Record summary: Shown here is a 367-nucleotide sequence from Planctomyces sp. SH-PL62, a member of the family "transfer-messenger RNA". Taxonomically the source falls in Planctomyces (Bacteria, Pseudomonadati, Planctomycetota, Planctomycetaceae). It is annotated as a non-coding RNA gene.
[Rfam]
RNA sequence: GGGGGCGAACCAGGAUCGACCGGAUGUCCGAAGUGAACGGUGGCGUGCCGAGGUUGGUCAGCAGGCCUCGUAAAAAGCCGACCGAAAUUUAGCUGCCAACAACACUGUUGGUCUCCGUCUCGCUGCCUAAAAAACAGCAACGGCCCUGCGACGAGUCUUCUCCCGAGAGACCCGGCCAGGGACGCCAAUUCGGGAUCGCCUAGGCCAAACCGCUUGUUGAGGCCGAGGCUAAAUUCAUGACGAGCUAAGCCGAAAGGGAUCCUGCCGACCGGAGCCCUGACGCCGACAACUAAAUGACCGGCUACGCACGUAGAGGCCCUCGCCGACGCUUCUCGGGACGCGGGUGCAAUUCCCGCCGCCUCCACUA
Numbered sequence: 001g002g003g004g005g006c007g008a009a010c011c012a013g014g015a016u017c018g019a020c021c022g023g024a025u026g027u028c029c030g031a032a033g034u035g036a037a038c039g040g041u042g043g044c045g046u047g048c049c050g051a052g053g054u055u056g057g058u059c060a061g062c063a064g065g066c067c068u069c070g071u072a073a074a075a076a077g078c079c080g081a082c083c084g085a086a087a088u089u090u091a092g093c094u095g096c097c098a099a100c101a102a103c104a105c106u107g108u109u110g111g112u113c114u115c116c117g118u119c120u121c122g123c124u125g126c127c128u129a130a131a132a133a134a135c136a137g138c139a140a141c142g143g144c145c146c147u148g149c150g151a152c153g154a155g156u157c158u159u160c161u162c163c164c165g166a167g168a169g170a171c172c173c174g175g176c177c178a179g180g181g182a183c184g185c186c187a188a189u190u191c192g193g194g195a196u197c198g199c200c201u202a203g204g205c206c207a208a209a210c211c212g213c214u215u216g217u218u219g220a221g222g223c224c225g226a227g228g229c230u231a232a233a234u235u236c237a238u239g240a241c242g243a244g245c246u247a248a249g250c251c252g253a254a255a256g257g258g259a260u261c262c263u264g265c266c267g268a269c270c271g272g273a274g275c276c277c278u279g280a281c282g283c284c285g286a287c288a289a290c291u292a293a294a295u296g297a298c299c300g301g302c303u304a305c306g307c308a309c310g311u312a313g314a315g316g317c318c319c320u321c322g323c324c325g326a327c328g329c330u331u332c333u334c335g336g337g338a339c340g341c342g343g344g345u346g347c348a349a350u351u352c353c354c355g356c357c358g359c360c361u362c363c364a365c366u367a
Base pairs, nucleotide, nucleotide: 001363002362003361004360005359006358007357020336021335022334023333024331026329027328033323034322035321036320039318040317041316044310045309046308047307048306049070050069051068052067053066057082058081059080061078062077120140122138123137124136125135141184142183144181145180146179150176152174153173155171156170157169158168161195162194163193164192165191166190167189198229199228200227201226203224204223205222212246214244215243249284251282252281255278256277257276258275260273261272262271264302265301266300267299269296340356341355342354343353344352